[Rfam]
RNA sequence: UUAACUAAGAUUUGUAUGGAGUUGAAACGUCUGCUUACGUUUGCCGCUAAGGGCGCUGUUCCAACUCCAUACAAAUUUGUGUUA
Dot-bracket structure: .......(((((((((.(.(((((.((((....(((..((.....))..)))....)))).))))).).)))))))))......
Numbered sequence: 001u002u003a004a005c006u007a008a009g010a011u012u013u014g015u016a017u018g019g020a021g022u023u024g025a026a027a028c029g030u031c032u033g034c035u036u037a038c039g040u041u042u043g044c045c046g047c048u049a050a051g052g053g054c055g056c057u058g059u060u061c062c063a064a065c066u067c068c069a070u071a072c073a074a075a076u077u078u079g080u081g082u083u084a
Stems, first nucleotide, its partner, number of pairs: 008078009018068001020066005026060004034052003039047002

The family of this 84-nucleotide RNA from Bombyx mori is "mir-2807 microRNA precursor family". On this family, see Liu et al., BMC Genomics 2010: "MicroRNAs of Bombyx mori identified by Solexa sequencing". A search with the family's covariance model found it, with a score of 82 bits. The family's consensus secondary structure was predicted with RNAalifold. Its family is annotated with miRNA-mediated post-transcriptional gene silencing and RISC complex in the Gene Ontology.